[Rfam]
RNA sequence: CCGUGCUAGAUGGGGAGGUAGCGGUGCCCUGUAACCUGCAAUCCGCUAUAGCAGGAUCGAAUUCCCAGUCUAGGCGUUUAUAUUUCAGGGUCUGCCCUGAAUAAGUGGCGUUGACGAAUGGGUCCUGCGCAACGGAAAUCUAUGAACCCCGUCAGGUCCGGGAGGAAGCAGCGGUAAGUAGACACUUUCGUGUGCCGCAGGGGUGCCUAUUCCGAGCUAACUGUUCAGGUAACGCUUGGGAUAUGGCGGCGAAGCUGGGUGCACGG
Numbered sequence: 001c002c003g004u005g006c007u008a009g010a011u012g013g014g015g016a017g018g019u020a021g022c023g024g025u026g027c028c029c030u031g032u033a034a035c036c037u038g039c040a041a042u043c044c045g046c047u048a049u050a051g052c053a054g055g056a057u058c059g060a061a062u063u064c065c066c067a068g069u070c071u072a073g074g075c076g077u078u079u080a081u082a083u084u085u086c087a088g089g090g091u092c093u094g095c096c097c098u099g100a101a102u103a104a105g106u107g108g109c110g111u112u113g114a115c116g117a118a119u120g121g122g123u124c125c126u127g128c129g130c131a132a133c134g135g136a137a138a139u140c141u142a143u144g145a146a147c148c149c150c151g152u153c154a155g156g157u158c159c160g161g162g163a164g165g166a167a168g169c170a171g172c173g174g175u176a177a178g179u180a181g182a183c184a185c186u187u188u189c190g191u192g193u194g195c196c197g198c199a200g201g202g203g204u205g206c207c208u209a210u211u212c213c214g215a216g217c218u219a220a221c222u223g224u225u226c227a228g229g230u231a232a233c234g235c236u237u238g239g240g241a242u243a244u245g246g247c248g249g250c251g252a253a254g255c256u257g258g259g260u261g262c263a264c265g266g
Stems, first nucleotide, its partner, number of pairs: 001266006009058003012030004017025001019023001035055005064259006073250001075248003080244010093231002097228006105221002107218003116212008124201006130192002133190005139182005149174004157166003